Rfam assigns this 423-nucleotide RNA sequence from Erinaceus europaeus to the family "Vertebrate telomerase RNA". On this family, see Fragnet et al., J Biol Chem 2005: "Comparative functional study of the viral telomerase RNA based on natural mutations". From the family's description: Telomerase is a ribonucleoprotein reverse transcriptase that synthesises telomeric DNA. Telomerase RNAs differ greatly in sequence and structure between vertebrates, ciliates and yeasts, but they share a 5' pseudoknot structure close to the template sequence. Vertebrate telomerase RNAs have a 3' H/ACA snoRNA-like domain. A search with the family's covariance model found it, with a score of 259 bits. Lineage of the source: Eukaryota > Teleostomi > Theria > Boreoeutheria > Erinaceus.
[Rfam]
RNA sequence: GGGCUCCGGAGGGCUGCAGCCAUCUUAUUGUAACCCUAACCUUUGUGAGGCGUAGGUGCAGUGCUUUUGUUCCCCGCGUGUUGUUUUUCUCGCUGACUUUCAGCGCGCGGAAAAGCCAUGCCCUGCUGCCAAUCGUCGUGGAUGUCCGUUUACCAAACCAAAAAAUGUCAGCUGCUGGCUCGCUUGCCCUUUCCGGGAGCCUGCGGUAGCCGCUCGCCCGGCCGGGCACCCCGCCUAAGGCCGCGGUAGGCCGGGCGCCUCCCCGGAGGCGCCCAUCGCCACCGCGAAGAGUUCGUCUCUGUCAGCCGCGGGGCCCUGGGGGCCGACCGUGUAUGGCUGGCCGCAGGCAGAGAAACCGAGCCGGCACCCACGCGGCGCUUCCCUGAGCUGUGGGGCUUGCACCUGGGACCGGCUCGGACAUUU
Numbered sequence: 001g002g003g004c005u006c007c008g009g010a011g012g013g014c015u016g017c018a019g020c021c022a023u024c025u026u027a028u029u030g031u032a033a034c035c036c037u038a039a040c041c042u043u044u045g046u047g048a049g050g051c052g053u054a055g056g057u058g059c060a061g062u063g064c065u066u067u068u069g070u071u072c073c074c075c076g077c078g079u080g081u082u083g084u085u086u087u088u089c090u091c092g093c094u095g096a097c098u099u100u101c102a103g104c105g106c107g108c109g110g111a112a113a114a115g116c117c118a119u120g121c122c123c124u125g126c127u128g129c130c131a132a133u134c135g136u137c138g139u140g141g142a143u144g145u146c147c148g149u150u151u152a153c154c155a156a157a158c159c160a161a162a163a164a165a166u167g168u169c170a171g172c173u174g175c176u177g178g179c180u181c182g183c184u185u186g187c188c189c190u191u192u193c194c195g196g197g198a199g200c201c202u203g204c205g206g207u208a209g210c211c212g213c214u215c216g217c218c219c220g221g222c223c224g225g226g227c228a229c230c231c232c233g234c235c236u237a238a239g240g241c242c243g244c245g246g247u248a249g250g251c252c253g254g255g256c257g258c259c260u261c262c263c264c265g266g267a268g269g270c271g272c273c274c275a276u277c278g279c280c281a282c283c284g285c286g287a288a289g290a291g292u293u294c295g296u297c298u299c300u301g302u303c304a305g306c307c308g309c310g311g312g313g314c315c316c317u318g319g320g321g322g323c324c325g326a327c328c329g330u331g332u333a334u335g336g337c338u339g340g341c342c343g344c345a346g347g348c349a350g351a352g353a354a355a356c357c358g359a360g361c362c363g364g365c366a367c368c369c370a371c372g373c374g375g376c377g378c379u380u381c382c383c384u385g386a387g388c389u390g391u392g393g394g395g396c397u398u399g400c401a402c403c404u405g406g407g408a409c410c411g412g413c414u415c416g417g418a419c420a421u422u423u
Stems, first nucleotide, its partner, number of pairs: 005197006011189004016184001018180005063116005075109009092172006098165003200347007212328001214326002216323004222318001224316002230312005242286005249280003254274002288300004358415007367406002375400003380395004

Rfam links the family to the GO terms telomerase catalytic core complex, telomerase activity and telomere maintenance via telomerase.